RNA sequence: AGCGCGACCGGAUCCACCGCCCGGGUGACGGUGAGGUAGUCCCGGAUGGCGGUGCCGUGCCGGCCCUC
Numbered sequence: 001a002g003c004g005c006g007a008c009c010g011g012a013u014c015c016a017c018c019g020c021c022c023g024g025g026u027g028a029c030g031g032u033g034a035g036g037u038a039g040u041c042c043c044g045g046a047u048g049g050c051g052g053u054g055c056c057g058u059g060c061c062g063g064c065c066c067u068c
Stems, first nucleotide, its partner, number of pairs: 005062002008059001013028001015027004035056004040052002043049001
Rfam assigns this 68-nucleotide sequence from Micromonospora sp. Llam0 to the family "ASdes TB sRNA". It scores 64 bits against the family's covariance model. The organism belongs to Micromonospora, within Bacteria. It is annotated as a small RNA. A reference for the family is Arnvig and Young (2009), "Identification of small RNAs in Mycobacterium tuberculosis", Mol Microbiol.